[Rfam]
Annotation:
The family of this 163-nucleotide sequence from Rhodococcoides fascians is "c-di-AMP riboswitch aptamer (ydaO/yuaA leader)". Taxonomically the source falls in Rhodococcoides (Bacteria, Actinomycetota, Actinomycetes, Mycobacteriales).
RNA sequence: CGCAAGUCACCGCCUAAUCGAUCACUCGCGAGAGUGUUCGUACCGGGAACCCGAUAUUUACUGGGGUGAAUCCCGCCGAGUCACCGAUGGUGGCCGGUGGGUAGGGCUGCUCUUCCCAGCCCGAACCCGUCAGCUAACUCGGUCGGCGGACGAGUGGAAGAAA
Numbered sequence: 001c002g003c004a005a006g007u008c009a010c011c012g013c014c015u016a017a018u019c020g021a022u023c024a025c026u027c028g029c030g031a032g033a034g035u036g037u038u039c040g041u042a043c044c045g046g047g048a049a050c051c052c053g054a055u056a057u058u059u060a061c062u063g064g065g066g067u068g069a070a071u072c073c074c075g076c077c078g079a080g081u082c083a084c085c086g087a088u089g090g091u092g093g094c095c096g097g098u099g100g101g102u103a104g105g106g107c108u109g110c111u112c113u114u115c116c117c118a119g120c121c122c123g124a125a126c127c128c129g130u131c132a133g134c135u136a137a138c139u140c141g142g143u144c145g146g147c148g149g150a151c152g153a154g155u156g157g158a159a160g161a162a163a
Stems, first nucleotide, its partner, number of pairs: 011148004019040002042143006052063002064128003072101007104122004